[Rfam]
RNA sequence: GGUUUUAACCCAGUAUCUCAAGGUACUACGGGAUUCUGACCUUCCACUUGUGGUUGCGUCAAAAACCUUAAUUUUUGGAUAGCCAUCUCGGGGAAUCCGGGAAGGCAUU
Numbered sequence: 001g002g003u004u005u006u007a008a009c010c011c012a013g014u015a016u017c018u019c020a021a022g023g024u025a026c027u028a029c030g031g032g033a034u035u036c037u038g039a040c041c042u043u044c045c046a047c048u049u050g051u052g053g054u055u056g057c058g059u060c061a062a063a064a065a066c067c068u069u070a071a072u073u074u075u076u077g078g079a080u081a082g083c084c085a086u087c088u089c090g091g092g093g094a095a096u097c098c099g100g101g102a103a104g105g106c107a108u109u
Stems, first nucleotide, its partner, number of pairs: 007035002009031002013029002016025001018023001037061004041056001044053002086105003092098002
Rfam assigns this 109-nucleotide sequence from Haemonchus placei to the family "SL2 RNA".
Gene Ontology term of the family: mRNA trans splicing, via spliceosome.
Clan: SL clan.
Rfam 15.1 lists 598 matches to the family in 38 species.
Rfam's curators write: This family represents SL2 RNA. SL2 RNA is involved in trans splicing in lower eukaryotes.
The literature on the family includes a 2000 paper in Mol Cell Biol by Evans and Blumenthal, "trans splicing of polycistronic Caenorhabditis elegans pre-mRNAs: analysis of the SL2 RNA".
A search with the family's covariance model found it, with a score of 61 bits.
It is annotated as a non-coding RNA gene.